This 129-nucleotide RNA sequence from Odobenus rosmarus belongs to the Rfam family "Small nucleolar RNA SNORA25". The match comes from Rfam's covariance-model search (98 bits). The family's consensus secondary structure was predicted with RNAfold. Gene Ontology terms of the family: RNA processing and nucleolus.
RNA sequence: AAAUCAUUUCAAAGAGAGCUUUUGGGGCUGUGAAACCAGGAGCUCUUAACUCUAUUACCGAAGAUUGGAGUUGUCCGUAGGUUGCCACAGUCACUCAAUAGUGCUAAGUUUUUCGGAGGAAAUAGAAGA
Numbered sequence: 001a002a003a004u005c006a007u008u009u010c011a012a013a014g015a016g017a018g019c020u021u022u023u024g025g026g027g028c029u030g031u032g033a034a035a036c037c038a039g040g041a042g043c044u045c046u047u048a049a050c051u052c053u054a055u056u057a058c059c060g061a062a063g064a065u066u067g068g069a070g071u072u073g074u075c076c077g078u079a080g081g082u083u084g085c086c087a088c089a090g091u092c093a094c095u096c097a098a099u100a101g102u103g104c105u106a107a108g109u110u111u112u113u114c115g116g117a118g119g120a121a122a123u124a125g126a127a128g129a
Stems, first nucleotide, its partner, number of pairs: 004057001006055002014047008023039001026037002072122001074120003080114002089105002092103004
ACA25 is a member of the H/ACA class of snoRNA that guide the sites of modification of uridines to pseudouridines. It is annotated as an H/ACA-box small nucleolar RNA. The source organism's lineage runs through Eukaryota, Metazoa, Tetrapoda, Odobenus and Odobenus rosmarus.